Background: A member of the RNA family "RAGATH-18 RNA" from Clostridium bornimense, 66 nucleotides long. Actinobacteria, Firmicutes, Fusobacteria, Thermotogae (1 example). A search with the family's covariance model found it, with a score of 73 bits. The family's consensus secondary structure is taken from published work. Rfam classes the family as a small RNA.
RNA sequence: CCUUUGGACUGUUAUACCAAAUCAAAGUAGUUCUUUAUAACAAAAUGAGACAGGAUGAAGAAGGAA
Number, nucleotide and partner (000 for none) at each position: 001c064002c063003u062004u061005u060006g000007g000008a000009c053010u052011g051012u050013u049014a000015u000016a000017c000018c000019a000020a000021a000022u048023c047024a046025a000026a000027g000028u000029a000030g041031u040032u039033c000034u000035u000036u000037a000038u000039a032040a031041c030042a000043a000044a000045a000046u024047g023048a022049g013050a012051c011052a010053g009054g000055a000056u000057g000058a000059a000060g005061a004062a003063g002064g001065a000066a000